[Rfam]
RNA sequence: GCGGGACUGGCCUACUAUUCUAUGGUAGGCAACUGGGCGAAGGUCAUA
Numbered sequence: 001g002c003g004g005g006a007c008u009g010g011c012c013u014a015c016u017a018u019u020c021u022a023u024g025g026u027a028g029g030c031a032a033c034u035g036g037g038c039g040a041a042g043g044u045c046a047u048a
Base pairs, nucleotide, nucleotide: 007042008041010038011037012036013035014034018031020029021028
RNA: Hepatitis C virus stem-loop SL1412 RNA